[Rfam]
RNA sequence: CGGAUCGUCCGUGCCGCAACCUCCUCCCUGCGGUAUGGACACCCCGAUGCGGACCCCGACCUCCUCCCCGAGGGUCCACAUCAGAACCGAAGGCGAUGCGCUCCUCCCGCGCAUCGCCUUUUUU
Numbered sequence: 001c002g003g004a005u006c007g008u009c010c011g012u013g014c015c016g017c018a019a020c021c022u023c024c025u026c027c028c029u030g031c032g033g034u035a036u037g038g039a040c041a042c043c044c045c046g047a048u049g050c051g052g053a054c055c056c057c058g059a060c061c062u063c064c065u066c067c068c069c070g071a072g073g074g075u076c077c078a079c080a081u082c083a084g085a086a087c088c089g090a091a092g093g094c095g096a097u098g099c100g101c102u103c104c105u106c107c108c109g110c111g112c113a114u115c116g117c118c119u120u121u122u123u124u
Base pairs, nucleotide, nucleotide: 007040008039009038011036012035013034014033015032016031017030046082047081048080049079051077052076053075054074055073091119092118093117094116095115096114097113098112099111100110101109
RNA: Alphaproteobacterial ar14